Record summary:
mir-9186 microRNA precursor family: a 79-nucleotide RNA sequence from Cnephaeus nilssonii. It scores 81 bits against the family's covariance model.
[Rfam]
RNA sequence: UAGGGUGAGGGUUGCGGUAUGGCUGGUACUGAGGUAAUAGCUGCCCCAGUACCGGAAAUGCCGCCAUCCUCCUUCUACA
Dot-bracket structure: (((((.((((...(((((((..(((((((((...............)))))))))..)))))))...)))).)))))..
Pairs were carried over by alignment from the consensus structure, which was predicted with RNAalifold. The organism belongs to Cnephaeus, within Eukaryota.